This 96-nucleotide RNA sequence from bacterium 1XD42-54 belongs to the Rfam family "THF (Tetrahydrofolate) riboswitch aptamer". Rfam describes the family as follows. Tetrahydrofolate (THF) riboswitch was first reported for Ames et al. as an RNA motif in 5' untranslated (5'-UTR)regions of folate transport and biosynthesis genes in Firmicutes genomes. The family has 101 seed sequences and 747 matches in Rfam 15.1. Gene Ontology term of the family: tetrahydrofolate metabolic process. The base pairs follow the family's consensus structure, which is taken from published work.

[Rfam]
RNA sequence: AGUAGAGAAGAUACAAGUACGUUAAGUGUCACAAGAUGGGAAGGUCUUUUUGUGAACGAAGGAGUUCCUCCGCGUUACAGUAUCGCUUCCGCUACU
Number, nucleotide and partner (000 for none) at each position: 001a096002g095003u094004a093005g092006a000007g000008a000009a000010g084011a083012u082013a081014c080015a000016a000017g078018u077019a076020c074021g073022u072023u000024a000025a000026g057027u056028g000029u055030c054031a053032c052033a051034a050035g049036a048037u000038g000039g000040g090041a000042a088043g087044g086045u000046c000047u000048u036049u035050u034051u033052g032053u031054g030055a029056a027057c026058g000059a000060a000061g071062g070063a069064g068065u000066u000067c000068c064069u063070c062071c061072g022073c021074g020075u000076u019077a018078c017079a000080g014081u013082a012083u011084c010085g000086c044087u043088u042089c000090c040091g000092c005093u004094a003095c002096u001